[Rfam]
RNA sequence: GCGCAGCGUCCCCGGCCAGGUGGCGUCGUCCCGGGUGAGCACCUCGUCGCCGAGGUGGUCGCCGUCGGCGUACCCGCGGGCGAGCGCCUGGCCGCCGUACUUGCCGUCGGUCAGCUCCUCCACCUUGCCGUGCGCGACCAGCAGGACCUGGUCGAUCGGGCUGCCGCCCUCGACCAGGGUCUGUCCGGCCUCGUACUCGUGCCGGGUGAACCGGCCGGCGAGCAGCUCCAGCAGGUCCGCGUCCUGGAUACCGCGCAGCGCCGGGAUCUCGCGCAGCGUCAGCGGCAGGACCCUGACCUCCGCGCCGGUCUGGACGAAGGCCAGCCGGCCGCGCCCGGCCGCGUGGGUCAGGCGCCGGUUGACCCGGUAGGUGCCGCCGGACACCGGCACCCACGGCAGCUGCCGGAGCAGCCAGCGCGAGGAGAUGUCCUGCGUCUGCGGCACGGUCUUGGUGGUGGUGGCCAGAUUGCGUGCGGCCGCCGUGCUCAGGCUCUGCUGCGUUGCCGC
Numbered sequence: 001g002c003g004c005a006g007c008g009u010c011c012c013c014g015g016c017c018a019g020g021u022g023g024c025g026u027c028g029u030c031c032c033g034g035g036u037g038a039g040c041a042c043c044u045c046g047u048c049g050c051c052g053a054g055g056u057g058g059u060c061g062c063c064g065u066c067g068g069c070g071u072a073c074c075c076g077c078g079g080g081c082g083a084g085c086g087c088c089u090g091g092c093c094g095c096c097g098u099a100c101u102u103g104c105c106g107u108c109g110g111u112c113a114g115c116u117c118c119u120c121c122a123c124c125u126u127g128c129c130g131u132g133c134g135c136g137a138c139c140a141g142c143a144g145g146a147c148c149u150g151g152u153c154g155a156u157c158g159g160g161c162u163g164c165c166g167c168c169c170u171c172g173a174c175c176a177g178g179g180u181c182u183g184u185c186c187g188g189c190c191u192c193g194u195a196c197u198c199g200u201g202c203c204g205g206g207u208g209a210a211c212c213g214g215c216c217g218g219c220g221a222g223c224a225g226c227u228c229c230a231g232c233a234g235g236u237c238c239g240c241g242u243c244c245u246g247g248a249u250a251c252c253g254c255g256c257a258g259c260g261c262c263g264g265g266a267u268c269u270c271g272c273g274c275a276g277c278g279u280c281a282g283c284g285g286c287a288g289g290a291c292c293c294u295g296a297c298c299u300c301c302g303c304g305c306c307g308g309u310c311u312g313g314a315c316g317a318a319g320g321c322c323a324g325c326c327g328g329c330c331g332c333g334c335c336c337g338g339c340c341g342c343g344u345g346g347g348u349c350a351g352g353c354g355c356c357g358g359u360u361g362a363c364c365c366g367g368u369a370g371g372u373g374c375c376g377c378c379g380g381a382c383a384c385c386g387g388c389a390c391c392c393a394c395g396g397c398a399g400c401u402g403c404c405g406g407a408g409c410a411g412c413c414a415g416c417g418c419g420a421g422g423a424g425a426u427g428u429c430c431u432g433c434g435u436c437u438g439c440g441g442c443a444c445g446g447u448c449u450u451g452g453u454g455g456u457g458g459u460g461g462c463c464a465g466a467u468u469g470c471g472u473g474c475g476g477c478c479g480c481c482g483u484g485c486u487c488a489g490g491c492u493c494u495g496c497u498g499c500g501u502u503g504c505c506g507c
Base pairs, nucleotide, nucleotide: 006390008388009387010386015329016328019326020325025321026320027319029317030316036314039311041309042308043307046306048304049303050302052300053299055232056231058229061226062225064223065222067111069109076104077103078102079101080100082098084096086095087094121220123218124217128213130211131210132207133206135204136203141198144197145196151192154190156188157187158186159185160184161179162178166174235297236296237295241291242290243289244288245287246286252282255279258277259276262271263270330343331342332341333340353379354378356376357375358374362372363371364370392432393431395429396428397427398426400424401423404419405418408416438477439476441474443472444471445470449465450464451463452462453461479507481503482502485500487498488497489496
RNA: Saccharopolyspora sRNA 350